RNA sequence: UGGUAGAUGCACCCUGAUAACUCACUCCCUUAGCUGUUUAAUUACGGCUGAGGGUUUUUUUU
Number, nucleotide and partner (000 for none) at each position: 001u000002g013003g012004u011005a000006g000007a000008u000009g000010c000011a004012c003013c002014c000015u000016g000017a000018u000019a000020a000021c000022u000023c000024a000025c000026u000027c054028c053029c052030u051031u050032a049033g048034c047035u046036g045037u044038u000039u000040a000041a000042u000043u000044a037045c036046g035047g034048c033049u032050g031051a030052g029053g028054g027055u000056u000057u000058u000059u000060u000061u000062u000
This 62-nucleotide RNA sequence from Dulcicalothrix desertica belongs to the Rfam family "Nitrogen stress-induced RNA 1". Taxonomically the source falls in Dulcicalothrix desertica (Bacteria, Bacillati, Cyanobacteriota, Dulcicalothrix). By type it is a small RNA. The family has 17 seed sequences and 962 matches in Rfam 15.1.